[Rfam]
RNA sequence: GACUUACAUUCAGUAGCAAGCUUAACCGAAUAGGGGAGGCGUAGGGAAACCGAGUCUGAUAAGGGCGUCAAGUUGCUGGGUGUAGACCCGAAACCAAGUGAUCUAUCCAUGGCCAGGAUGAAGGUGAGGUAACACUCACUGGAGGUCCGAACCCACUAACGUUGAAAAGUUAGGGGAUGAGCUGUGGAUAGGGGUGAAAGGCCAAACAAACUUGGAAAUAGCUGGUU
Numbered sequence: 001g002a003c004u005u006a007c008a009u010u011c012a013g014u015a016g017c018a019a020g021c022u023u024a025a026c027c028g029a030a031u032a033g034g035g036g037a038g039g040c041g042u043a044g045g046g047a048a049a050c051c052g053a054g055u056c057u058g059a060u061a062a063g064g065g066c067g068u069c070a071a072g073u074u075g076c077u078g079g080g081u082g083u084a085g086a087c088c089c090g091a092a093a094c095c096a097a098g099u100g101a102u103c104u105a106u107c108c109a110u111g112g113c114c115a116g117g118a119u120g121a122a123g124g125u126g127a128g129g130u131a132a133c134a135c136u137c138a139c140u141g142g143a144g145g146u147c148c149g150a151a152c153c154c155a156c157u158a159a160c161g162u163u164g165a166a167a168a169g170u171u172a173g174g175g176g177a178u179g180a181g182c183u184g185u186g187g188a189u190a191g192g193g194g195u196g197a198a199a200g201g202c203c204a205a206a207c208a209a210a211c212u213u214g215g216a217a218a219u220a221g222c223u224g225g226u227u
Base pairs, nucleotide, nucleotide: 005084006083007082008081009080010079011078012077013076014075015074016073017072020040021039022038023037026034027033044051045050054066055065056064057063087225088224090222094215095214096213097212098211099210103191104190105189106188107187108186109185110184111183112182113181114179116148117147118146119145123140124139125138126137127136128135152176153175154174156173157172158171159170160169193203194202195201